[Rfam]
RNA sequence: GGACAUAAACGCGCUCGUAAUAAGCGGAUCGGACCCGGGGGCGGUACCCGGCGCCUCCACCAUAACACACUCAGGGGCAUCCUUCGUUUGGGGAACACCUUGAUACCGUGGGGGCGAAACAGGAUCGACGGACGUCUAAAGGGGUUAGCUUUGUCUCGGUGAGAUACCACCGUUAUCGGUUCACUUAAGCUAGUUGCAAACGACAACAAAGCUCCGGCAAUGGCUCUGGCUGCGUAA
Numbered sequence: 001g002g003a004c005a006u007a008a009a010c011g012c013g014c015u016c017g018u019a020a021u022a023a024g025c026g027g028a029u030c031g032g033a034c035c036c037g038g039g040g041g042c043g044g045u046a047c048c049c050g051g052c053g054c055c056u057c058c059a060c061c062a063u064a065a066c067a068c069a070c071u072c073a074g075g076g077g078c079a080u081c082c083u084u085c086g087u088u089u090g091g092g093g094a095a096c097a098c099c100u101u102g103a104u105a106c107c108g109u110g111g112g113g114g115c116g117a118a119a120c121a122g123g124a125u126c127g128a129c130g131g132a133c134g135u136c137u138a139a140a141g142g143g144g145u146u147a148g149c150u151u152u153g154u155c156u157c158g159g160u161g162a163g164a165u166a167c168c169a170c171c172g173u174u175a176u177c178g179g180u181u182c183a184c185u186u187a188a189g190c191u192a193g194u195u196g197c198a199a200a201c202g203a204c205a206a207c208a209a210a211g212c213u214c215c216g217g218c219a220a221u222g223g224c225u226c227u228g229g230c231u232g233c234g235u236a237a
Stems, first nucleotide, its partner, number of pairs: 001156005013145004025134002029131003035051005052116009157172004